[Rfam]
RNA: mir-2788 microRNA precursor family
RNA sequence: AAGCACCGUCGCUGUAGAGCUGGGGUUUCUAAGCGGCAUGUGCCUUCUGGUUUACUUCUAUGCAAUGCCCUUGGAAAUCCCAAAAAUGCUAGCGACCGCG
Numbered sequence: 001a002a003g004c005a006c007c008g009u010c011g012c013u014g015u016a017g018a019g020c021u022g023g024g025g026u027u028u029c030u031a032a033g034c035g036g037c038a039u040g041u042g043c044c045u046u047c048u049g050g051u052u053u054a055c056u057u058c059u060a061u062g063c064a065a066u067g068c069c070c071u072u073g074g075a076a077a078u079c080c081c082a083a084a085a086a087u088g089c090u091a092g093c094g095a096c097c098g099c100g
Stems, first nucleotide, its partner, number of pairs: 008096006014089003021082009031072003035069005041064003